[Rfam]
RNA sequence: GUAAAGGUUCUUUUCAGAGCCACCCACAAAAUCAAAAAAGAGCUCU
Numbered sequence: 001g002u003a004a005a006g007g008u009u010c011u012u013u014u015c016a017g018a019g020c021c022a023c024c025c026a027c028a029a030a031a032u033c034a035a036a037a038a039a040g041a042g043c044u045c046u
Base pairs, nucleotide, nucleotide: 006021007020008019009018010017011016
Dot-bracket structure: .....((((((....)))))).........................